The record is a 107-nucleotide sequence from Shimwellia blattae, which matches "iscR stability element" in Rfam. The family's RNA type in Rfam is cis-regulatory element. On this family, see Desnoyers et al., EMBO J 2009: "Small RNA-induced differential degradation of the polycistronic mRNA iscRSUA". Taxonomically the source falls in Shimwellia blattae (Bacteria, Pseudomonadati, Pseudomonadota, Enterobacteriaceae). The base pairs follow the family's consensus structure, which is taken from published work. Its family is annotated with response to host iron concentration in the Gene Ontology.
[Rfam]
RNA sequence: GGAUUCUUUUUCAGGAUCAGGCGGGGGGUAUCCCCUGAACGCUGAGGCGUACAUCGAGUCGUUGGCCUGAUUCCGUAGCAUUGAGUGAUGUACGGAGCUUAAAGAGC
Numbered sequence: 001g002g003a004u005u006c007u008u009u010u011u012c013a014g015g016a017u018c019a020g021g022c023g024g025g026g027g028g029u030a031u032c033c034c035c036u037g038a039a040c041g042c043u044g045a046g047g048c049g050u051a052c053a054u055c056g057a058g059u060c061g062u063u064g065g066c067c068u069g070a071u072u073c074c075g076u077a078g079c080a081u082u083g084a085g086u087g088a089u090g091u092a093c094g095g096a097g098c099u100u101a102a103a104g105a106g107c
Stems, first nucleotide, its partner, number of pairs: 010097003014073009023035005039063001043061003076092001079090003